[Rfam]
RNA sequence: GACGAUAAACGCCUUUUGGAAUAGACGCUGCGGACCCGGGGGCGGUACCCGGCGCCUCCACCAAAUCUCCGGUGUUGGACGGAGCAUGGGGGCGAAAUAGGAUCGACGCGUGUAGUAAAGGGAAGGUUUUCGUCCGGCAUGGUUCCGCCGUUAUCGGGCCAUUGCAAUAGUUGCCAACGACAACUUUGCUGAGGUUCGCGCGGCUGCGUAA
Numbered sequence: 001g002a003c004g005a006u007a008a009a010c011g012c013c014u015u016u017u018g019g020a021a022u023a024g025a026c027g028c029u030g031c032g033g034a035c036c037c038g039g040g041g042g043c044g045g046u047a048c049c050c051g052g053c054g055c056c057u058c059c060a061c062c063a064a065a066u067c068u069c070c071g072g073u074g075u076u077g078g079a080c081g082g083a084g085c086a087u088g089g090g091g092g093c094g095a096a097a098u099a100g101g102a103u104c105g106a107c108g109c110g111u112g113u114a115g116u117a118a119a120g121g122g123a124a125g126g127u128u129u130u131c132g133u134c135c136g137g138c139a140u141g142g143u144u145c146c147g148c149c150g151u152u153a154u155c156g157g158g159c160c161a162u163u164g165c166a167a168u169a170g171u172u173g174c175c176a177a178c179g180a181c182a183a184c185u186u187u188g189c190u191g192a193g194g195u196u197c198g199c200g201c202g203g204c205u206g207c208g209u210a211a
Stems, first nucleotide, its partner, number of pairs: 001134005014124004026112003030109003036052005053094007135150004
A member of the RNA family "permuted transfer-messenger RNA" from Inquilinus limosus, 211 nucleotides long. About the family: Bacterial tmRNA, also known as 10Sa RNA or SsrA, is named for its dual tRNA and mRNA-like properties. Its role is to liberate the mRNA from a stalled ribosome. To accomplish this part of the tmRNA is used as a reading frame that ends in a translation stop signal. The broken mRNA is replaced in the ribosome by the tmRNA and translation of the tmRNA leads to addition of a proteolysis tag to the incomplete protein enabling recognition by a protease. Recently a number of permuted tmRNA genes have been found encoded in two parts. tmRNAs have been identified in eubacteria and some chloroplasts but are absent from archaeal and eukaryote nuclear genomes. Rfam classes the family as a non-coding RNA gene. The base pairs follow the family's consensus structure, which is taken from published work. Its family is annotated with RNA catabolic process in the Gene Ontology.